[Rfam]
RNA sequence: AAAGCAGGUCUGCAAUUGCAGCACUUAAUUUCCGUAGAGUGCUGUCAUUAAGCCUGCUGAGAGUAUCUUUCUGCUGCAGAGCUCUGACUCCAGCUCACUAUGGUGGUGAUGAGGAAGCUCUGUAGCUGAACAUUU
Number, nucleotide and partner (000 for none) at each position: 001a000002a000003a058004g057005c056006a055007g054008g053009u000010c000011u000012g000013c000014a000015a000016u000017u000018g000019c044020a043021g042022c041023a040024c039025u038026u037027a000028a000029u000030u000031u000032c000033c000034g000035u000036a000037g026038a025039g024040u023041g022042c021043u020044g019045u000046c000047a000048u000049u000050a000051a000052g000053c008054c007055u006056g005057c004058u003059g000060a000061g000062a000063g000064u000065a000066u000067c000068u000069u000070u129071c128072u000073g126074c125075u124076g123077c122078a121079g120080a000081g000082c000083u000084c000085u114086g000087a000088c111089u000090c000091c108092a107093g000094c000095u106096c105097a104098c103099u000100a000101u000102g000103g098104u097105g096106g095107u092108g091109a000110u000111g088112a000113g000114g085115a000116a000117g000118c000119u000120c079121u078122g077123u076124a075125g074126c073127u000128g071129a070130a000131c000132a000133u000134u000135u000
RNA: Small nucleolar RNA SNORA69